A member of the RNA family "c-di-AMP riboswitch aptamer (ydaO/yuaA leader)" from Alicyclobacillus tolerans, 171 nucleotides long.
RNA sequence: UUCUGCUUCAAGCCGAAUCGCUGAUAGCAGCGUACGGGGGAUUUUCAGUAUGAAGGUGCGGGAAUGAUGCAAUUGCCCGAUCGCCUUCUAGGGGUGAAUCCAAAUUUGGACAGGCGUACUCGAUCGCCUGAACCCGACAGCUAACCUCGGAGGCAAUUCUCGAGAGGGAGU
Number, nucleotide and partner (000 for none) at each position: 001u000002u000003c000004u000005g000006c000007u000008u000009c000010a000011a000012g154013c153014c152015g000016a000017a000018u000019c032020g031021c030022u029023g000024a000025u000026a000027g000028c000029a022030g021031c020032g019033u000034a000035c149036g148037g147038g146039g145040g000041a000042u000043u000044u091045u090046c000047a000048g000049u000050a000051u000052g000053a000054a000055g000056g000057u000058g000059c000060g000061g000062g000063a000064a000065u000066g000067a000068u000069g000070c000071a000072a000073u000074u000075g000076c000077c000078c000079g000080a000081u000082c000083g000084c000085c000086u000087u000088c000089u000090a045091g044092g135093g134094g133095u000096g000097a000098a000099u000100c109101c108102a107103a000104a000105u000106u000107u102108g101109g100110a000111c000112a129113g128114g127115c126116g000117u000118a000119c000120u000121c000122g000123a000124u000125c000126g115127c114128c113129u112130g000131a000132a000133c094134c093135c092136g000137a000138c000139a000140g000141c000142u000143a000144a000145c039146c038147u037148c036149g035150g000151a000152g014153g013154c012155a000156a000157u000158u000159c000160u000161c000162g000163a000164g000165a000166g000167g000168g000169a000170g000171u000